This 512-nucleotide part of an RNA from Strigamia maritima belongs to the Rfam family "Eukaryotic small subunit ribosomal RNA". Taxonomically the source falls in Strigamia (Eukaryota, Eumetazoa, Arthropoda, Pleurostigmophora). The family has 90 seed sequences and 75,755 matches in Rfam 15.1.

RNA sequence: CAUUGCUGCGGUUAAAAAGCUCGUAGUUGGAUCUGAGUUCAGUCUAUGGUGCCGUAUGGUCAACUGUAGUCUGUCUCGACGUCGGUUUGCGCGGUUCGCCGUGCUUGCUGGCUUGAUUACCUUGAAUAACUCAGGUUGUUCAUAAAAGGCUUUUGCCUAUAUGAUUUUGCAUGGAAUAAUGGAAUAAGACUCCGGUCUGUUUUGUUGGUCUUAAGACCGUUGUAAUGAUUAAAAGGGAUUGACGGGGACAUCCGUAUCGAUGCGCGAGAGGUGAAAUUCUUGGACCGCAUCGGGACGUCCUACUGCGAAAGCAUUUGUCAAGAAUGUCUUCAUUAAUCAAGAACGAAAGUCAGAGGAUCGAAGGCGAUUAGAUACCGCCCUAGUUCUGACCGUAAACGCUACCAACUAGUGAUCAGGCGGUGGCAUUCUUUGCCCUGCCUGGGAGCUUCCCGGAAACGAAAGUCUUCGGGUUCCGGGGGUAGUAUGGUUGCAAAGCUGAAACUUAAAGGAAU
Numbered sequence: 001c002a003u004u005g006c007u008g009c010g011g012u013u014a015a016a017a018a019g020c021u022c023g024u025a026g027u028u029g030g031a032u033c034u035g036a037g038u039u040c041a042g043u044c045u046a047u048g049g050u051g052c053c054g055u056a057u058g059g060u061c062a063a064c065u066g067u068a069g070u071c072u073g074u075c076u077c078g079a080c081g082u083c084g085g086u087u088u089g090c091g092c093g094g095u096u097c098g099c100c101g102u103g104c105u106u107g108c109u110g111g112c113u114u115g116a117u118u119a120c121c122u123u124g125a126a127u128a129a130c131u132c133a134g135g136u137u138g139u140u141c142a143u144a145a146a147a148g149g150c151u152u153u154u155g156c157c158u159a160u161a162u163g164a165u166u167u168u169g170c171a172u173g174g175a176a177u178a179a180u181g182g183a184a185u186a187a188g189a190c191u192c193c194g195g196u197c198u199g200u201u202u203u204g205u206u207g208g209u210c211u212u213a214a215g216a217c218c219g220u221u222g223u224a225a226u227g228a229u230u231a232a233a234a235g236g237g238a239u240u241g242a243c244g245g246g247g248a249c250a251u252c253c254g255u256a257u258c259g260a261u262g263c264g265c266g267a268g269a270g271g272u273g274a275a276a277u278u279c280u281u282g283g284a285c286c287g288c289a290u291c292g293g294g295a296c297g298u299c300c301u302a303c304u305g306c307g308a309a310a311g312c313a314u315u316u317g318u319c320a321a322g323a324a325u326g327u328c329u330u331c332a333u334u335a336a337u338c339a340a341g342a343a344c345g346a347a348a349g350u351c352a353g354a355g356g357a358u359c360g361a362a363g364g365c366g367a368u369u370a371g372a373u374a375c376c377g378c379c380c381u382a383g384u385u386c387u388g389a390c391c392g393u394a395a396a397c398g399c400u401a402c403c404a405a406c407u408a409g410u411g412a413u414c415a416g417g418c419g420g421u422g423g424c425a426u427u428c429u430u431u432g433c434c435c436u437g438c439c440u441g442g443g444a445g446c447u448u449c450c451c452g453g454a455a456a457c458g459a460a461a462g463u464c465u466u467c468g469g470g471u472u473c474c475g476g477g478g479g480u481a482g483u484a485u486g487g488u489u490g491c492a493a494a495g496c497u498g499a500a501a502c503u504u505a506a507a508g509g510a511a512u
Stems, first nucleotide, its partner, number of pairs: 009475003017472001019344001021342002026337003235331003239326001243322001247319004253297002257293008268279003305312002349390006359383001363379004401471003405463002408447003413442008422434003451458002477504003486497004